RNA sequence: UUCUUACAGAACUUGGCACUGGAAGAAUUCACAGAUUGAUUCCGAAUCGUGGUUCUUUUAAUGCCAUAUUUUGUGGGCU
Number, nucleotide and partner (000 for none) at each position: 001u000002u000003c077004u076005u075006a074007c073008a072009g071010a070011a000012c000013u000014u066015g065016g064017c063018a062019c000020u060021g059022g058023a056024a000025g055026a054027a053028u000029u052030c051031a050032c049033a000034g047035a000036u000037u000038g000039a000040u000041u000042c000043c000044g000045a000046a000047u034048c000049g032050u031051g030052g029053u027054u026055c025056u023057u000058u022059u021060a020061a000062u018063g017064c016065c015066a014067u000068a000069u000070u010071u009072u008073g007074u006075g005076g004077g003078c000079u000